[Rfam]
RNA sequence: UGGAUGCUGUAGAGUUUUAGAAUUCCUACGCUUUACCGUGGCAUACGAAAUUCGGCAAAGCGUUUGGAUUCUGAAACCCUAUCGAU
Numbered sequence: 001u002g003g004a005u006g007c008u009g010u011a012g013a014g015u016u017u018u019a020g021a022a023u024u025c026c027u028a029c030g031c032u033u034u035a036c037c038g039u040g041g042c043a044u045a046c047g048a049a050a051u052u053c054g055g056c057a058a059a060g061c062g063u064u065u066g067g068a069u070u071c072u073g074a075a076a077c078c079c080u081a082u083c084g085a086u
Base pairs, nucleotide, nucleotide: 012078014077015076016075017074018073019072020071021070023068024067025066028063029062030061031060032059033058034057036055037054